[Rfam]
RNA: Guanidine-I riboswitch aptamer
RNA sequence: UGUUCUGUUUUCUAGGGUUCCGCAGCUGCUACAGGCUGGUCUGGUCCGAGGGAAAACGCAUGUACUACGAUGUACAUGUCUACACGGAGGGAUAAAAGCCCGGGAGGU
Numbered sequence: 001u002g003u004u005c006u007g008u009u010u011u012c013u014a015g016g017g018u019u020c021c022g023c024a025g026c027u028g029c030u031a032c033a034g035g036c037u038g039g040u041c042u043g044g045u046c047c048g049a050g051g052g053a054a055a056a057c058g059c060a061u062g063u064a065c066u067a068c069g070a071u072g073u074a075c076a077u078g079u080c081u082a083c084a085c086g087g088a089g090g091g092a093u094a095a096a097a098g099c100c101c102g103g104g105a106g107g108u
Base pairs, nucleotide, nucleotide: 007057008056009055010054011053012052015047016046020044021043022041023038024037025036026035027034058079059078060077061076062075063074064073065072083103085106089101090100091099